[Rfam]
RNA sequence: AGGAGGAACAACCACAGUGGCGGGGCCAGUUCUGGAGCCCUGGAUUCAGCUCCCACAGUAACUAAGGAGCUCUCAGCCUGCAGGGCCUGGAGGCUCAGGGGGCGG
Dot-bracket structure: ..(((...((.((.....(((.(((..((((((..(...(((.............)))....)..))))))))).))).....))..))....))).........
Numbered sequence: 001a002g003g004a005g006g007a008a009c010a011a012c013c014a015c016a017g018u019g020g021c022g023g024g025g026c027c028a029g030u031u032c033u034g035g036a037g038c039c040c041u042g043g044a045u046u047c048a049g050c051u052c053c054c055a056c057a058g059u060a061a062c063u064a065a066g067g068a069g070c071u072c073u074c075a076g077c078c079u080g081c082a083g084g085g086c087c088u089g090g091a092g093g094c095u096c097a098g099g100g101g102g103c104g105g
Stems, first nucleotide, its partner, number of pairs: 003096003009089002012085002019078003023074003028071006036063001040058003

The family of this 105-nucleotide sequence from Vulpes vulpes is "mir-8834 microRNA precursor family". The base pairs follow the family's consensus structure, which was predicted with RNAalifold. A search with the family's covariance model found it, with a score of 56 bits. Rfam links the family to the GO terms miRNA-mediated post-transcriptional gene silencing and RISC complex.